About this RNA
A member of the RNA family "Alphaproteobacteria transfer-messenger RNA" from Pseudoxanthobacter soli, 357 nucleotides long. The source organism's lineage runs through Bacteria, Pseudomonadati, Alphaproteobacteria, Hyphomicrobiales and Pseudoxanthobacter soli. The family's consensus secondary structure is taken from published work. Rfam describes the family as follows. Bacterial tmRNA, also known as 10Sa RNA or SsrA, is named for its dual tRNA and mRNA-like properties.
RNA sequence: GCCCUUUCACAUCCCGCCGCUUCAUCUUAUAUUCGGGCUGCCGGCGACGGUCGGAUAUGGCGAUAAACGGUCGACGUAAUAAGCUCAUCGGACCCGGGGGCGGUACCCGGCGCCUCCACCUGAGCCCGCUUCGGACAAGCGGGUUGAGGUGGGGGCGAAAUAGGAUCGACGAGAGUGUAAAGGUCGUGCUUUCGCCCGGCAUGGUACCGCCGUUAUCGGACCAAACCUAUAGUUGCCAAUGACAACUAUGCUGAGGCUCGCCUCGCCGCGUGAUGCGGUGCGGUACCUCUAAUUAAGCCCUUGCUGUUAGCGCAGUAAGGCGGGGUUCGGGGGCACCUGGCAACAGAAGCCCUCACU
Dot-bracket structure: ........................................((((......))))....(((((.....(..((((........(((.(((...(((((.......)))))(((((((.................................)))))))............)))))).......))))..)..)))))((((.[[[..[[)))).....]].]]]...................................................................................................[[[[..((((((]]]]..........))))))...
Rfam classes the family as a non-coding RNA gene.